[Rfam]
RNA: SAM-I/IV (S-adenosyl methionine) riboswitch aptamer
RNA sequence: UAUUAGCAUCAAGAACGCUUAGCGUACCAACCGACUAUUUCGAAGCACGGUGGUUUAGAAUGUGGGUAGCUCUGCCAAAUUUUCGAGCAAUCUG
Numbered sequence: 001u002a003u004u005a006g007c008a009u010c011a012a013g014a015a016c017g018c019u020u021a022g023c024g025u026a027c028c029a030a031c032c033g034a035c036u037a038u039u040u041c042g043a044a045g046c047a048c049g050g051u052g053g054u055u056u057a058g059a060a061u062g063u064g065g066g067u068a069g070c071u072c073u074g075c076c077a078a079a080u081u082u083u084c085g086a087g088c089a090a091u092c093u094g
Stems, first nucleotide, its partner, number of pairs: 006063004015025004026054003031050003035045002038089001040087001065076004